Shown here is an 87-nucleotide RNA sequence from Galemys pyrenaicus, a member of the family "mir-412 microRNA precursor family". Gene Ontology terms of the family: miRNA-mediated post-transcriptional gene silencing and RISC complex. The base pairs follow the family's consensus structure, which was predicted with RNAalifold.

RNA sequence: GGAUGCAGGACGGGUGGUCGACCAGUUGGAAAGUAACUGUUCCAAAUGUCCUUCACCUGGUCCACUAGCUGUCUGUGUCCAGGGCAG
Numbered sequence: 001g002g003a004u005g006c007a008g009g010a011c012g013g014g015u016g017g018u019c020g021a022c023c024a025g026u027u028g029g030a031a032a033g034u035a036a037c038u039g040u041u042c043c044a045a046a047u048g049u050c051c052u053u054c055a056c057c058u059g060g061u062c063c064a065c066u067a068g069c070u071g072u073c074u075g076u077g078u079c080c081a082g083g084g085c086a087g
Base pairs, nucleotide, nucleotide: 001080002079003078004077005076006075009073010072011071012070013069015067016066017065018064020062021061022060023059024058025057027055028054029053032052033051035049036047038045
The match comes from Rfam's covariance-model search (80 bits).